[Rfam]
RNA: Bacterial RNase P class A
Organism: Lusitaniella coriacea
RNA sequence: AGAGUUGGCGAGGAGGUUGCAGGCUGACACAAGCUGUCAGUUUGAGGAAAGUCCGGACUCCCGAAAGAUCGAACUUGCUGGGUAAUUCCCAGUGCGCGCGAGCGUGAGGAGAGUGCCACAGAAACAUACCGCCUUUUACAGCGAACAGCCGUCUUCACGGAUGAGGUGAUAACUAAAAAAGGUAAGGGUGCAAAGGUGCGGUAAGAGCGCACCAGCAGUAUCGAGAGGUGCUGGCUCGGUAAACCCCGGUUGGGAGCAAGGUCGGAGGGACUAGGGUUGGUCUUUUUCCCGUCCCGUUUUUGGCGAACCGCUUGAGGUGUCUGGUAACAGGCAUCCUAGAUAGAUAAUCUCCCUCUACACGAUAGAGAACAGAACCCGGCUUAUGUCCGACUCUCUUU
Numbered sequence: 001a002g003a004g005u006u007g008g009c010g011a012g013g014a015g016g017u018u019g020c021a022g023g024c025u026g027a028c029a030c031a032a033g034c035u036g037u038c039a040g041u042u043u044g045a046g047g048a049a050a051g052u053c054c055g056g057a058c059u060c061c062c063g064a065a066a067g068a069u070c071g072a073a074c075u076u077g078c079u080g081g082g083u084a085a086u087u088c089c090c091a092g093u094g095c096g097c098g099c100g101a102g103c104g105u106g107a108g109g110a111g112a113g114u115g116c117c118a119c120a121g122a123a124a125c126a127u128a129c130c131g132c133c134u135u136u137u138a139c140a141g142c143g144a145a146c147a148g149c150c151g152u153c154u155u156c157a158c159g160g161a162u163g164a165g166g167u168g169a170u171a172a173c174u175a176a177a178a179a180a181g182g183u184a185a186g187g188g189u190g191c192a193a194a195g196g197u198g199c200g201g202u203a204a205g206a207g208c209g210c211a212c213c214a215g216c217a218g219u220a221u222c223g224a225g226a227g228g229u230g231c232u233g234g235c236u237c238g239g240u241a242a243a244c245c246c247c248g249g250u251u252g253g254g255a256g257c258a259a260g261g262u263c264g265g266a267g268g269g270a271c272u273a274g275g276g277u278u279g280g281u282c283u284u285u286u287u288c289c290c291g292u293c294c295c296g297u298u299u300u301u302g303g304c305g306a307a308c309c310g311c312u313u314g315a316g317g318u319g320u321c322u323g324g325u326a327a328c329a330g331g332c333a334u335c336c337u338a339g340a341u342a343g344a345u346a347a348u349c350u351c352c353c354u355c356u357a358c359a360c361g362a363u364a365g366a367g368a369a370c371a372g373a374a375c376c377c378g379g380c381u382u383a384u385g386u387c388c389g390a391c392u393c394u395c396u397u398u
Stems, first nucleotide, its partner, number of pairs: 001394008011384001012352007020044009049382003053379004058256004067288002072251003076248002078092005093107001094105004108246002113244002115240003129187002131183007195213006215235001216233007260309003270300001273297001275295001279294002282291001316335008